mir-51 microRNA precursor family: a 60-nucleotide RNA from Caenorhabditis briggsae. Rfam links the family to the GO terms RISC complex and miRNA-mediated post-transcriptional gene silencing. The family has 5 seed sequences and 8 matches in Rfam 15.1.

RNA sequence: UACCCGUAGCUCCUUGCCAUGUUACUGGUAAAAGUGAACAUGGAAGUUGGUCCGGGUACA
Numbered sequence: 001u002a003c004c005c006g007u008a009g010c011u012c013c014u015u016g017c018c019a020u021g022u023u024a025c026u027g028g029u030a031a032a033a034g035u036g037a038a039c040a041u042g043g044a045a046g047u048u049g050g051u052c053c054g055g056g057u058a059c060a
Stems, first nucleotide, its partner, number of pairs: 001058004006053001008051001010049001013046002017043007024035003